[Rfam]
Nucleotides: 178
Stems, first nucleotide, its partner, number of pairs: 006173006016082006023075002033066006086115007094107004116142011144163007
Number, partner (000 for none) and nucleotide at each position: 001000a002000g003000u004000g005000a006173a007172g008171g009170u010169a011168g012000a013000g014000g015000u016082g017081c018080g019079a020078a021077u022000u023075g024074c025000a026000a027000g028000a029000g030000u031000a032000c033066u034065a035064a036063u037062c038061g039000u040000g041000a042000g043000g044000a045000u046000g047000a048000a049000a050000g051000a052000u053000c054000c055000u056000a057000c058000g059000a060000c061038c062037g063036a064035u065034u066033a067000a068000g069000a070000a071000a072000g073000g074024g075023u076000u077021g078020u079019u080018c081017g082016c083000c084000g085000a086115a087114a088113c089112a090111u091110a092109g093000a094107a095106a096105a097104g098000c099000u100000u101000u102000u103000c104097c105096u106095u107094u108000c109092c110091u111090a112089u113088g114087u115086u116142g117141g118140u119139u120138c121137u122136g123135u124134a125133u126132u127000u128000a129000a130000g131000a132126g133125a134124u135123g136122c137121a138120g139119g140118a141117c142116u143000g144163u145162c146161a147160g148159a149158a150157u151000a152000u153000a154000u155000a156000u157150a158149u159148u160147c161146u162145g163144g164000a165000g166000g167000g168011c169010u170009a171008u172007c173006u174000c175000a176000c177000a178000u